[Rfam]
RNA sequence: AGGUGAAUGGCAGGGCAAUUCUCCUUUGGCAGGGAUUGCAGAGCUCCUGCUACACCCCAAACAUGGUUGGGCCUGCAUGCAUUGCCCCCCUGCCAAAGGAGAACCGCUCUGUCAUUCUCCA
Numbered sequence: 001a002g003g004u005g006a007a008u009g010g011c012a013g014g015g016c017a018a019u020u021c022u023c024c025u026u027u028g029g030c031a032g033g034g035a036u037u038g039c040a041g042a043g044c045u046c047c048u049g050c051u052a053c054a055c056c057c058c059a060a061a062c063a064u065g066g067u068u069g070g071g072c073c074u075g076c077a078u079g080c081a082u083u084g085c086c087c088c089c090c091u092g093c094c095a096a097a098g099g100a101g102a103a104c105c106g107c108u109c110u111g112u113c114a115u116u117c118u119c120c121a
Stems, first nucleotide, its partner, number of pairs: 005117005011111006019103001021101004027095008
Background: Shown here is a 121-nucleotide sequence from Colocasia esculenta, a member of the family "mir-399 microRNA precursor family". Lineage of the source: Eukaryota > Liliopsida > Alismatales > Araceae > Colocasia. About the family: mir-399 was identified in both Arabidopsis thaliana and Oryza sativa computationally and was later experimentally verified. mir-399 is thought to target mRNAs coding for a phosphatase transporter. The mature sequence is excised from the 3' arm of the hairpin. Pairs were carried over by alignment from the consensus structure, which was predicted with PFOLD. It scores 60 bits against the family's covariance model.